The record is an 80-nucleotide sequence from Cricetulus griseus, which matches "mir-339 microRNA precursor family" in Rfam. The source organism's lineage runs through Eukaryota, Metazoa, Bilateria, Mammalia and Cricetulus. The sequence is in the family's curated seed alignment. The family's consensus secondary structure was predicted with RNAalifold. Its family is annotated with miRNA-mediated post-transcriptional gene silencing and RISC complex in the Gene Ontology.

[Rfam]
RNA sequence: CAGCCACCGUCCCUGUCCUCCAGGAGCUCACGUAUGCCUGCCUGUGAGCACCUCGAUGACAGAGCCGGUGUCCACCCCUG
Numbered sequence: 001c002a003g004c005c006a007c008c009g010u011c012c013c014u015g016u017c018c019u020c021c022a023g024g025a026g027c028u029c030a031c032g033u034a035u036g037c038c039u040g041c042c043u044g045u046g047a048g049c050a051c052c053u054c055g056a057u058g059a060c061a062g063a064g065c066c067g068g069u070g071u072c073c074a075c076c077c078c079u080g
Stems, first nucleotide, its partner, number of pairs: 003072001005070004011064001013062003017058001019056002022053003026049006032041003